Notes
Rfam assigns this 109-nucleotide RNA from Raphanus sativus to the family "Small nucleolar RNA snoR97".

RNA sequence: AAUAGCCAAUUUGCUUGUAGUCUGAAUAACUCAGAAAUUGUAUGUGUUUACAUCAACUUUGUCUCUUGCUUCGGCCUUGAGAUAUUUGUUAAACUAGGACACUAAAUUU
Numbered sequence: 001a002a003u004a005g006c007c008a009a010u011u012u013g014c015u016u017g018u019a020g021u022c023u024g025a026a027u028a029a030c031u032c033a034g035a036a037a038u039u040g041u042a043u044g045u046g047u048u049u050a051c052a053u054c055a056a057c058u059u060u061g062u063c064u065c066u067u068g069c070u071u072c073g074g075c076c077u078u079g080a081g082a083u084a085u086u087u088g089u090u091a092a093a094c095u096a097g098g099a100c101a102c103u104a105a106a107u108u109u
Stems, first nucleotide, its partner, number of pairs: 044102006055090003062082004
Dot-bracket structure: ...........................................((((((.....(((....((((.............)))).....)))......)))))).......
Pairs were carried over by alignment from the consensus structure, which was predicted with WAR.